[Rfam]
RNA: MIR1120/MIR1122 microRNA precursor family
RNA sequence: AUACUUCCUCCGUCCCAUAAUAUAAGAGCGUUUUUGACACUAGUGUAGUGUACAAAACGUUCUUAUAUUAUGGGACAGAGGGAGUAA
Number, nucleotide and partner (000 for none) at each position: 001a000002u000003a085004c084005u083006u000007c081008c080009u079010c078011c000012g000013u075014c074015c073016c072017a071018u000019a069020a068021u067022a066023u065024a064025a063026g062027a061028g060029c059030g058031u057032u056033u055034u054035u000036g000037a051038c050039a049040c048041u047042a000043g000044u000045g000046u000047a041048g040049u039050g038051u037052a000053c000054a034055a033056a032057a031058c030059g029060u028061u027062c026063u025064u024065a023066u022067a021068u020069u019070a000071u017072g016073g015074g014075a013076c000077a000078g010079a009080g008081g007082g000083a005084g004085u003086a000087a000